[Rfam]
RNA sequence: AGGCUUGCAGAGAGAGAGACAGGGUCUGAUCCGCAGCCUCUGUGGCAGCUGUUGAUCAGCUGUUGCCUCUCUCUCUGGUCUUG
Numbered sequence: 001a002g003g004c005u006u007g008c009a010g011a012g013a014g015a016g017a018g019a020c021a022g023g024g025u026c027u028g029a030u031c032c033g034c035a036g037c038c039u040c041u042g043u044g045g046c047a048g049c050u051g052u053u054g055a056u057c058a059g060c061u062g063u064u065g066c067c068u069c070u071c072u073c074u075c076u077g078g079u080c081u082u083g
Stems, first nucleotide, its partner, number of pairs: 010075009020065003024061001026059006034051004